[Rfam]
Nucleotides: 131
Base pairs, nucleotide, nucleotide: 005048006047008045009044010043017036018035019034020033021032023030065124066123067122068121069119070118071117072116076113077112081109082108083107084106085105089101090100091099
Number, partner (000 for none) and nucleotide at each position: 001000c002000c003000c004000a005048u006047c007000c008045c009044u010043g011000c012000a013000u014000c015000u016000g017036a018035c019034u020033a021032g022000u023030u024000c025000u026000u027000g028000u029000u030023g031000g032021c033020u034019g035018g036017u037000g038000c039000a040000a041000u042000c043010c044009a045008g046000u047006g048005g049000u050000g051000a052000g053000c054000u055000g056000a057000c058000a059000g060000u061000a062000a063000g064000u065124u066123c067122c068121a069119g070118c071117u072116u073000u074000u075000a076113g077112g078000a079000a080000a081109c082108a083107g084106g085105g086000c087000u088000a089101u090100u091099c092000u093000u094000c095000a096000u097000g098000u099091g100090g101089a102000u103000g104000a105085c106084u107083c108082u109081g110000u111000g112077c113076u114000u115000a116072a117071a118070g119069c120000a121068u122067g123066g124065g125000a126000a127000c128000a129000g130000c131000u

Shown here is a 131-nucleotide RNA sequence from Jaculus jaculus, a member of the family "Small nucleolar RNA SNORA65". The family is grouped with related families in Rfam's "SNORA65 clan". Rfam classes the family as an H/ACA-box small nucleolar RNA. Rfam links the family to the GO terms nucleolus and RNA processing. A search with the family's covariance model found it, with a score of 104 bits. U65 belongs to the H/ACA class of snoRNAs which are thought to guide the sites of modification of uridines to pseudouridines. Pairs were carried over by alignment from the consensus structure, which was predicted with RNAalifold.